[Rfam]
RNA sequence: GUUGAAGUUUCAUCUACAAAUGGAUAAGACUUUUGUCUUAGUGUAUCUGAAUUGUUAAAAAAAUGUAGCAAUACCCUGAAAUAACAAUACCCCAUAUCUCGCUUAAGCGAGAUAUGGGGUAUUGUUAUUUUGUU
Numbered sequence: 001g002u003u004g005a006a007g008u009u010u011c012a013u014c015u016a017c018a019a020a021u022g023g024a025u026a027a028g029a030c031u032u033u034u035g036u037c038u039u040a041g042u043g044u045a046u047c048u049g050a051a052u053u054g055u056u057a058a059a060a061a062a063a064u065g066u067a068g069c070a071a072u073a074c075c076c077u078g079a080a081a082u083a084a085c086a087a088u089a090c091c092c093c094a095u096a097u098c099u100c101g102c103u104u105a106a107g108c109g110a111g112a113u114a115u116g117g118g119g120u121a122u123u124g125u126u127a128u129u130u131u132g133u134u
Base pairs, nucleotide, nucleotide: 009024010023011022012021013020062131063130065128066127067126068125069124070123071122072121089120090119092117093116094115096113097112098111099110100109

A member of the RNA family "Plastid-psbA-1 3UTR RNA" from Alpinia oxyphylla, 134 nucleotides long. The base pairs follow the family's consensus structure, which was predicted with LocARNA. On this family, see Richter et al., Plant Commun 2023: "Retrograde signaling in plants: A critical review focusing on the GUN pathway and beyond". It is one of the family's seed sequences. Plastid psbA-1 is a non-coding RNA (ncRNA) present in plastids. It was identified in inverted repeat sequences in the 3 prime untranslate region (3UTR) of photosystem II quinone-binding protein (psbA).